[Rfam]
Rfam assigns this 69-nucleotide RNA from Mesobacillus subterraneus to the family "Listeria sRNA sbrA". On this family, see Toledo-Arana et al., Nature 2009: "The Listeria transcriptional landscape from saprophytism to virulence".
RNA sequence: ACACAGCUAGAUCCAUACCCCUAAACUCCCUAAAUGGAGGACAACGGCAUAUGCUGUUGUCCGCUUUUU
Numbered sequence: 001a002c003a004c005a006g007c008u009a010g011a012u013c014c015a016u017a018c019c020c021c022u023a024a025a026c027u028c029c030c031u032a033a034a035u036g037g038a039g040g041a042c043a044a045c046g047g048c049a050u051a052u053g054c055u056g057u058u059g060u061c062c063g064c065u066u067u068u069u
Stems, first nucleotide, its partner, number of pairs: 004036002008032002039062010